[Rfam]
RNA sequence: AUGGUGCAGUGGCGGUUCAGGGCCACUCCGGUAACGGGUGGCCUUAGGAAACUCUCCAGGCACACGGGUCUCCCUGGGGUUAAUUCACCCAGGGGGACUUAGGCCUGUACUGGGUCAAUGAGCUCCGUGCGGCGAGACCCAGGUUGGGCUCCAGGUGGAUGCCGACAGAAGGGGAGUUAUACUGCACCAU
Dot-bracket structure: (((((((((.(((.....(((((.((.(((....))))).)))))............(((........(((((((((...........))))))))))))...(((.....(((((.....(..........)..))))).....)))............)))..................)))))))))

The record is a 190-nucleotide sequence from Caldivirga maquilingensis, which matches "RNaseP truncated form" in Rfam. It is annotated as a ribozyme. Pyrobaculum and Caldivirga RNase P RNAs are reported as the smallest naturally occurring form of RNase P. They function as trans-acting precursor tRNA-processing ribozymes. This variant of RNase P, have a loss of the specificity domain, which suggests altered substrate specificity. The source organism's lineage runs through Archaea, Thermoprotei, Thermoproteales, Caldivirga and Caldivirga maquilingensis.